Notes
Small nucleolar RNA SNORD89: a 117-nucleotide sequence from Dryobates pubescens. By type it is a C/D-box small nucleolar RNA. Pairs were carried over by alignment from the consensus structure, which was predicted with RNAalifold. The source organism's lineage runs through Eukaryota, Metazoa, Bilateria, Neoaves and Dryobates. A search with the family's covariance model found it, with a score of 87 bits. About the family: snoRNA HBII-289 belongs to the family of C/D snoRNAs. It is the human orthologue of the mouse MBII-289 and has no identified RNA target.
[Rfam]
RNA sequence: GCUGAGGAGUGAUGACAAUAAAAGGCCGAAUUGCAGUGCCUCCAGCAAACAGUUUGGUCUCCUGGGAGGCACAGUGACAAAAACCCUUCUGAAGCGAAUCAUAAGUCUGACCUCAGG
Numbered sequence: 001g002c003u004g005a006g007g008a009g010u011g012a013u014g015a016c017a018a019u020a021a022a023a024g025g026c027c028g029a030a031u032u033g034c035a036g037u038g039c040c041u042c043c044a045g046c047a048a049a050c051a052g053u054u055u056g057g058u059c060u061c062c063u064g065g066g067a068g069g070c071a072c073a074g075u076g077a078c079a080a081a082a083a084c085c086c087u088u089c090u091g092a093a094g095c096g097a098a099u100c101a102u103a104a105g106u107c108u109g110a111c112c113u114c115a116g117g
Stems, first nucleotide, its partner, number of pairs: 002116006014107003025034002036102003041097002043094001046091002049088001052072002055069001058066002073087002076084001